A member of the RNA family "glmS glucosamine-6-phosphate activated ribozyme aptamer" from Salibacterium salarium, 172 nucleotides long. Lineage of the source: Bacteria > Bacillati > Bacillota > Bacillaceae > Salibacterium. From the family's description: This entry contains a glucosamine-6-phosphate activated ribozyme that is found in the mRNA for GlmS. GlmS is an enzyme that uses fructose-6-phosphate and glutamine to generate glucosamine-6-phosphate. The ribozyme catalyses self cleavage of the glmS mRNA that is thought to regulate GlmS activity.
RNA sequence: UCAUACUUUUAAGCGCCCGGACUGCUCCACGGACGGCAGAGGAGAGCAGUUGACGAGGAGGAGGUUCAUCGAACGAUCGGCGGAUGCCUCCCGGUUGCAUGUCACAACCGAUAUGUCCAGUUACAAACCACAGAAGGCGACUCUGUGACCAACAGACUGGAUGAUGACGACC
Numbered sequence: 001u002c003a004u005a006c007u008u009u010u011a012a013g014c015g016c017c018c019g020g021a022c023u024g025c026u027c028c029a030c031g032g033a034c035g036g037c038a039g040a041g042g043a044g045a046g047c048a049g050u051u052g053a054c055g056a057g058g059a060g061g062a063g064g065u066u067c068a069u070c071g072a073a074c075g076a077u078c079g080g081c082g083g084a085u086g087c088c089u090c091c092c093g094g095u096u097g098c099a100u101g102u103c104a105c106a107a108c109c110g111a112u113a114u115g116u117c118c119a120g121u122u123a124c125a126a127a128c129c130a131c132a133g134a135a136g137g138c139g140a141c142u143c144u145g146u147g148a149c150c151a152a153c154a155g156a157c158u159g160g161a162u163g164a165u166g167a168c169g170a171c172c
Stems, first nucleotide, its partner, number of pairs: 020051008028042001060091005069080004092110006115162007129147006136141001